[Rfam]
RNA sequence: CGGCGAGGACGACCUCCCCCAACACGGGCAUGACACCGGGACGACCCGG
Numbered sequence: 001c002g003g004c005g006a007g008g009a010c011g012a013c014c015u016c017c018c019c020c021a022a023c024a025c026g027g028g029c030a031u032g033a034c035a036c037c038g039g040g041a042c043g044a045c046c047c048g049g
Stems, first nucleotide, its partner, number of pairs: 002019002005016004036049005
This 49-nucleotide RNA sequence from Rhizobium deserti belongs to the Rfam family "Guanidine-II riboswitch aptamer (mini-ykkC)". Rfam describes the family as follows. Simpler in structure and has fewer highly conserved nucleotide positions than the ykkC-yxkD leader. A search with the family's covariance model found it, with a score of 40 bits.